A member of the RNA family "Alphaproteobacteria transfer-messenger RNA" from Cohaesibacter celericrescens, 371 nucleotides long. From the family's description: Bacterial tmRNA, also known as 10Sa RNA or SsrA, is named for its dual tRNA and mRNA-like properties. Its role is to liberate the mRNA from a stalled ribosome. To accomplish this part of the tmRNA is used as a reading frame that ends in a translation stop signal. The broken mRNA is replaced in the ribosome by the tmRNA and translation of the tmRNA leads to addition of a proteolysis tag to the incomplete protein enabling recognition by a protease. The family's consensus secondary structure is taken from published work.
RNA sequence: CCUCUUUUAAUCCCACCGACUAGUCCCUAUAUUCAAUUUGUCACUUCGGUGACUAUGGCAAUAAAUGGCCUUUGUAAUAAGCCUAUCGGACCCGGGGGCGGUACCCGGCGCCUCCACCACAAGCACCGUUGCGAAUGCAACGUCAGAAAGCGGUGUUUUUGCUGGGGGCGAAAUAGGAUCGACGAGGGUGUAAAGAUCGUGUUUUUGCUCGGCAUUGUACCGCCGUUAUCGGGCUAUAUUUUAGUUGCAAAUGACAACUAUGCAGGCUCACGUCUCGCUGCUGCUUAAGCAGUGCGACAAGCCACUUAAGCCCUAACCGGUUUGCUCGGUUAGGCGGGGUUCGGAGGCACCUGGCAACAGAAGCCUUCACU
Number, nucleotide and partner (000 for none) at each position: 001c000002c000003u000004c000005u000006u000007u000008u000009a000010a000011u000012c000013c000014c000015a000016c000017c000018g000019a000020c000021u000022a000023g000024u000025c000026c000027c000028u000029a000030u000031a000032u000033u000034c000035a000036a000037u000038u000039u000040g053041u052042c051043a050044c049045u000046u000047c000048g000049g044050u043051g042052a041053c040054u000055a000056u000057g209058g208059c207060a206061a205062u000063a000064a000065a000066u000067g202068g000069c000070c199071u000072u000073u196074g000075u000076a000077a000078u000079a000080a000081g000082c188083c187084u186085a000086u185087c184088g183089g000090a000091c000092c108093c107094g106095g105096g104097g000098g000099c000100g000101g000102u000103a000104c096105c095106c094107g093108g092109c170110g169111c168112c167113u166114c165115c164116a000117c000118c000119a000120c000121a000122a000123g000124c000125a000126c000127c000128g000129u000130u000131g000132c000133g000134a000135a000136u000137g000138c000139a000140a000141c000142g000143u000144c000145a000146g000147a000148a000149a000150g000151c000152g000153g000154u000155g000156u000157u000158u000159u000160u000161g000162c000163u000164g115165g114166g113167g112168g111169c110170g109171a000172a000173a000174u000175a000176g000177g000178a000179u000180c000181g000182a000183c088184g087185a086186g084187g083188g082189u000190g000191u000192a000193a000194a000195g000196a073197u000198c000199g070200u000201g000202u067203u000204u000205u061206u060207g059208c058209u057210c225211g224212g223213c222214a000215u236216u000217g234218u000219a000220c232221c231222g213223c212224c211225g210226u000227u000228a000229u000230c000231g221232g220233g000234c217235u000236a215237u000238a000239u000240u000241u000242u000243a000244g000245u000246u000247g000248c000249a000250a000251a000252u000253g000254a000255c000256a000257a000258c000259u000260a000261u000262g000263c000264a000265g000266g000267c000268u000269c000270a000271c000272g000273u000274c000275u000276c000277g000278c000279u000280g000281c000282u000283g000284c000285u000286u000287a000288a000289g000290c000291a000292g000293u000294g000295c000296g000297a000298c000299a000300a000301g000302c000303c000304a000305c000306u000307u000308a000309a000310g000311c000312c000313c000314u000315a000316a000317c000318c000319g000320g000321u000322u000323u000324g000325c000326u000327c000328g000329g000330u000331u000332a000333g000334g000335c000336g000337g352338g351339g350340u349341u000342c000343g368344g367345a366346g365347g364348c363349a340350c339351c338352u337353g000354g000355c000356a000357a000358c000359a000360g000361a000362a000363g348364c347365c346366u345367u344368c343369a000370c000371u000